[Rfam]
RNA sequence: GAUACAGAAGGUGAUGGAGCUCACCUUAAUUGCUGAGUUCAGCUAAUAGCUCCUAUUAGAUU
Numbered sequence: 001g002a003u004a005c006a007g008a009a010g011g012u013g014a015u016g017g018a019g020c021u022c023a024c025c026u027u028a029a030u031u032g033c034u035g036a037g038u039u040c041a042g043c044u045a046a047u048a049g050c051u052c053c054u055a056u057u058a059g060a061u062u
Base pairs, nucleotide, nucleotide: 010025011024012023013022016053017052018051019050020049021048032043033042034041035040
This 62-nucleotide RNA sequence from Koleobacter methoxysyntrophicus belongs to the Rfam family "Fluoride riboswitch aptamer (crcB RNA motif)".
It scores 46 bits against the family's covariance model.
Rfam 15.1 lists 2,293 matches to the family in 1,982 species.
Lineage of the source: Bacteria > Bacillota > Clostridia > Koleobacteraceae > Koleobacter.